[Rfam]
RNA: Small nucleolar RNA snoR639/H1
Organism: Cyphomyrmex costatus
RNA sequence: ACCCCACACUAAUUAAGCCGACCUUCUUGAUGCAUCUUUAUCGGAAGCGUGUGCUCGUUGUGGGAACAGCAAAGUCUGCGCAUUGUGUAUGGUUUAAUUUUCUUUUAAAUUCAACCAAAGAAUUAGCGCAGGACA
Numbered sequence: 001a002c003c004c005c006a007c008a009c010u011a012a013u014u015a016a017g018c019c020g021a022c023c024u025u026c027u028u029g030a031u032g033c034a035u036c037u038u039u040a041u042c043g044g045a046a047g048c049g050u051g052u053g054c055u056c057g058u059u060g061u062g063g064g065a066a067c068a069g070c071a072a073a074g075u076c077u078g079c080g081c082a083u084u085g086u087g088u089a090u091g092g093u094u095u096a097a098u099u100u101u102c103u104u105u106u107a108a109a110u111u112c113a114a115c116c117a118a119a120g121a122a123u124u125a126g127c128g129c130a131g132g133a134c135a
Base pairs, nucleotide, nucleotide: 021052022051024049026047027046028045078129079128080127081126090117091116092115093114094113096111097110098109099108100107